Notes: The family of this 148-nucleotide RNA sequence from Bos taurus is "Small nucleolar RNA SNORA79". On this family, see Schattner et al., RNA 2006: "A computational screen for mammalian pseudouridylation guide H/ACA RNAs". About the family: ACA65 (SNORA79) is a member of the H/ACA class of snoRNAs that guide the sites of modification of uridines to pseudouridines. This snoRNA was identified by computational screening and its expression in mouse experimentally verified by Northern blot and primer extension analysis. The organism belongs to Bos, within Eukaryota. It is one of the family's seed sequences.
RNA sequence: UGAUGGCUGUUCCUCUCACUGCUUGGAGCCUUAAGUAGUGGGAUUUUAGUCCAUCAUAUAUCUAAACUGACUUGUCUUCACUCAGGGCACCAUGGGGACAGGUUGGCUGUCCGUUAGUGCCUUCUGAUUUUUGCGGAGUCAAACAAUU
Numbered sequence: 001u002g003a004u005g006g007c008u009g010u011u012c013c014u015c016u017c018a019c020u021g022c023u024u025g026g027a028g029c030c031u032u033a034a035g036u037a038g039u040g041g042g043a044u045u046u047u048a049g050u051c052c053a054u055c056a057u058a059u060a061u062c063u064a065a066a067c068u069g070a071c072u073u074g075u076c077u078u079c080a081c082u083c084a085g086g087g088c089a090c091c092a093u094g095g096g097g098a099c100a101g102g103u104u105g106g107c108u109g110u111c112c113g114u115u116a117g118u119g120c121c122u123u124c125u126g127a128u129u130u131u132u133g134c135g136g137a138g139u140c141a142a143a144c145a146a147u148u
Base pairs, nucleotide, nucleotide: 001056002055003054004053005052006051008049014043015042016041017040018039020037021036022035023034069140070139071138072137073136082127083126084125085124086123087120088119089118090117096112097111098110099109100108